[Rfam]
RNA: CRISPR RNA direct repeat element
Organism: Halomicrobium mukohataei
RNA sequence: GUUUCAGACGGACUCUUGUGGGAUUGAAGC
Numbered sequence: 001g002u003u004u005c006a007g008a009c010g011g012a013c014u015c016u017u018g019u020g021g022g023a024u025u026g027a028a029g030c
Stems, first nucleotide, its partner, number of pairs: 011025002014022002